[Rfam]
Shown here is a 68-nucleotide sequence from Equus caballus, a member of the family "Small nucleolar RNA SNORD77". The family has 21 seed sequences and 396 matches in Rfam 15.1. Rfam describes the family as follows. U77 belongs to the C/D family of snoRNAs. It is predicted to guide 2'O-ribose methylation of large 28S rRNA subunit at position A1521. The C/D snoRNAs U44, U47, U74, U75, U76, U78, U79, U80 and U81 share the same host gene as U77 (non-coding). Rfam classes the family as a C/D-box small nucleolar RNA. Its Rfam clan is "SNORD77 clan".
RNA sequence: AUACUAUGAUGGUUGCAUAGUUCAGCAGAUUGAAUCAUGAAGAGAGAAACCAUUUGUCUGAUGUAUCU
Numbered sequence: 001a002u003a004c005u006a007u008g009a010u011g012g013u014u015g016c017a018u019a020g021u022u023c024a025g026c027a028g029a030u031u032g033a034a035u036c037a038u039g040a041a042g043a044g045a046g047a048a049a050c051c052a053u054u055u056g057u058c059u060g061a062u063g064u065a066u067c068u
Stems, first nucleotide, its partner, number of pairs: 001066004006038005013028004043055003
The source organism's lineage runs through Eukaryota, Craniata, Vertebrata, Euteleostomi and Equus.